[Rfam]
RNA: Bacillus sRNA ncr1575
Organism: Rossellomorea marisflavi
RNA sequence: UAAUGUUAAGGGAAAGGGAUGAUGGGUGAACGAUGGAUAACUAAUCUUGGUAGGUAGAAUUUGAAAUUGAAUGAAUUUCGAAUGAUAUUUAGUAGGAUUAGUCUGCCCAUUUUUCCCAUAGGUCCCAUUUCCAUCGGGCUUAUUUGUGUAUGGUAGUUUGCGGCUAAUCCUUCCAGAAAUCGUGGGAGGAUUUUUUG
Numbered sequence: 001u002a003a004u005g006u007u008a009a010g011g012g013a014a015a016g017g018g019a020u021g022a023u024g025g026g027u028g029a030a031c032g033a034u035g036g037a038u039a040a041c042u043a044a045u046c047u048u049g050g051u052a053g054g055u056a057g058a059a060u061u062u063g064a065a066a067u068u069g070a071a072u073g074a075a076u077u078u079c080g081a082a083u084g085a086u087a088u089u090u091a092g093u094a095g096g097a098u099u100a101g102u103c104u105g106c107c108c109a110u111u112u113u114u115c116c117c118a119u120a121g122g123u124c125c126c127a128u129u130u131c132c133a134u135c136g137g138g139c140u141u142a143u144u145u146g147u148g149u150a151u152g153g154u155a156g157u158u159u160g161c162g163g164c165u166a167a168u169c170c171u172u173c174c175a176g177a178a179a180u181c182g183u184g185g186g187a188g189g190a191u192u193u194u195u196u197g
Base pairs, nucleotide, nucleotide: 016115017114018113019112023109024108025107026106030102031101042100043099044098045097046096047095048094049093051091052090053089054088059083060082061081062080063079064078065077066076067075125146127144132137166192167191168190169189170188171187172186173185174184175183